[Rfam]
RNA: Trypanosomatid snoRNA TB10Cs3H1
Organism: Leishmania infantum
RNA sequence: AGCAGUGUCGCUAUGCGUCUCCGUCUCACCUCGGUGCGGAGCAACGGUACGAAACACGUGCGAGAC
Numbered sequence: 001a002g003c004a005g006u007g008u009c010g011c012u013a014u015g016c017g018u019c020u021c022c023g024u025c026u027c028a029c030c031u032c033g034g035u036g037c038g039g040a041g042c043a044a045c046g047g048u049a050c051g052a053a054a055c056a057c058g059u060g061c062g063a064g065a066c
Stems, first nucleotide, its partner, number of pairs: 002061003005057003012049003016046003020040005